[Rfam]
RNA sequence: GGUUUGCAAAGGAUUGACCUUAAUUUCUAACC
Numbered sequence: 001g002g003u004u005u006g007c008a009a010a011g012g013a014u015u016g017a018c019c020u021u022a023a024u025u026u027c028u029a030a031c032c
Base pairs, nucleotide, nucleotide: 001032002031003030004029006027008026009021010020011019012018
Shown here is a 32-nucleotide sequence from Dokdonia donghaensis, a member of the family "S4-Flavobacteria ribosomal protein leader".
Its Rfam clan is "Ribosomal Protein S4 Leader clan".
Rfam classes the family as a cis-regulatory leader.